[Rfam]
RNA sequence: UCUAAAACUCGAGAUAUGGGCUGAACAUUGAAAAAUGUCUGGGCUAGAGGACAGAUUCAGACUUAUCCAUUGUUACUAUAAUUUAGACUUGAAAAUGGCCUUUUUAAAUCUUGGACUCCACAUAAAAGUUAUAGGCCCAUGUCUUACCGAAUCUGUC
Numbered sequence: 001u002c003u004a005a006a007a008c009u010c011g012a013g014a015u016a017u018g019g020g021c022u023g024a025a026c027a028u029u030g031a032a033a034a035a036u037g038u039c040u041g042g043g044c045u046a047g048a049g050g051a052c053a054g055a056u057u058c059a060g061a062c063u064u065a066u067c068c069a070u071u072g073u074u075a076c077u078a079u080a081a082u083u084u085a086g087a088c089u090u091g092a093a094a095a096u097g098g099c100c101u102u103u104u105u106a107a108a109u110c111u112u113g114g115a116c117u118c119c120a121c122a123u124a125a126a127a128g129u130u131a132u133a134g135g136c137c138c139a140u141g142u143c144u145u146a147c148c149g150a151a152u153c154u155g156u157c
Stems, first nucleotide, its partner, number of pairs: 003155002006152001009146001011145010021134003025130001027129003035123003041119003045115001048112004054105002060099001062098002072088003